[Rfam]
RNA sequence: UGACGGGGGCCCGCACAAGCGGCGGAGCAUGUGGUUUAAUUCGACGCAACGCGAAGAACCUUACCUGGGCUUGACAUGCAGGUGACAGCCGGGGAAACCCGGUCUCCCUUCGGGGCACCUGCACAGGUGGUGCAUGGCUGUCGUCAGCUCGUGUCGUGAGAUGUUGGGUUAAGUCCCGCAACGAGCGCAACCCCCGCCCCAUGUUGCCAGCGGAGGCUACGUGCCUGCCGGGGACUCAUGGGGGACUGCCGGUGACAAACCGGAGGAAGGUGGGGAUGACGUCAAGUCAUCAUGCCCCUUAUGCCCAGGGCUACACACGUGCUACAGUGGCCGGUACAACGGGCUGCGAACCCGCAAGGGGGAGCGAAUCCCUAAAAGCCGGUCUAGGUUCGGAUUGGGGGCUGCAACUCGCCCCCAUGAAGGCGGAGUCGCUAGUAAUCGCGGAUCAGCAAUGCCGCGGUGAAUACGUUCCCGGGCCUUGUACACACCGCCCGUCACACCACGGGAGCGGGCAACACCCGAAGCCGGUGACCCAACCCCGCAAGGGGAGGGAGCCGUCGAAGGUGGGGCUCGUGACUGGGGUGAAGUCGUAACAAGG
Numbered sequence: 001u002g003a004c005g006g007g008g009g010c011c012c013g014c015a016c017a018a019g020c021g022g023c024g025g026a027g028c029a030u031g032u033g034g035u036u037u038a039a040u041u042c043g044a045c046g047c048a049a050c051g052c053g054a055a056g057a058a059c060c061u062u063a064c065c066u067g068g069g070c071u072u073g074a075c076a077u078g079c080a081g082g083u084g085a086c087a088g089c090c091g092g093g094g095a096a097a098c099c100c101g102g103u104c105u106c107c108c109u110u111c112g113g114g115g116c117a118c119c120u121g122c123a124c125a126g127g128u129g130g131u132g133c134a135u136g137g138c139u140g141u142c143g144u145c146a147g148c149u150c151g152u153g154u155c156g157u158g159a160g161a162u163g164u165u166g167g168g169u170u171a172a173g174u175c176c177c178g179c180a181a182c183g184a185g186c187g188c189a190a191c192c193c194c195c196g197c198c199c200c201a202u203g204u205u206g207c208c209a210g211c212g213g214a215g216g217c218u219a220c221g222u223g224c225c226u227g228c229c230g231g232g233g234a235c236u237c238a239u240g241g242g243g244g245a246c247u248g249c250c251g252g253u254g255a256c257a258a259a260c261c262g263g264a265g266g267a268a269g270g271u272g273g274g275g276a277u278g279a280c281g282u283c284a285a286g287u288c289a290u291c292a293u294g295c296c297c298c299u300u301a302u303g304c305c306c307a308g309g310g311c312u313a314c315a316c317a318c319g320u321g322c323u324a325c326a327g328u329g330g331c332c333g334g335u336a337c338a339a340c341g342g343g344c345u346g347c348g349a350a351c352c353c354g355c356a357a358g359g360g361g362g363a364g365c366g367a368a369u370c371c372c373u374a375a376a377a378g379c380c381g382g383u384c385u386a387g388g389u390u391c392g393g394a395u396u397g398g399g400g401g402c403u404g405c406a407a408c409u410c411g412c413c414c415c416c417a418u419g420a421a422g423g424c425g426g427a428g429u430c431g432c433u434a435g436u437a438a439u440c441g442c443g444g445a446u447c448a449g450c451a452a453u454g455c456c457g458c459g460g461u462g463a464a465u466a467c468g469u470u471c472c473c474g475g476g477c478c479u480u481g482u483a484c485a486c487a488c489c490g491c492c493c494g495u496c497a498c499a500c501c502a503c504g505g506g507a508g509c510g511g512g513c514a515a516c517a518c519c520c521g522a523a524g525c526c527g528g529u530g531a532c533c534c535a536a537c538c539c540c541g542c543a544a545g546g547g548g549a550g551g552g553a554g555c556c557g558u559c560g561a562a563g564g565u566g567g568g569g570c571u572c573g574u575g576a577c578u579g580g581g582g583u584g585a586a587g588u589c590g591u592a593a594c595a596a597g598g
Stems, first nucleotide, its partner, number of pairs: 001485002003482003007479007015469002019432005024325001026323008034314002040055004064309007077123002080120005088103006106115003126298002129296004135292002137287003140283001142281002147186006153162003165178004192275004197243007207232002211230003246266002249263005329384007341372003346365002351360003391422001396417007438461007488597001490594001493590002498584004503579003508574006516566004524559001526557004532552003537548004

Bacterial small subunit ribosomal RNA: a 598-nucleotide part of an RNA from bacterium HR41. A search with the family's covariance model found it, with a score of 1572 bits. Gene Ontology terms of the family: ribosome and structural constituent of ribosome.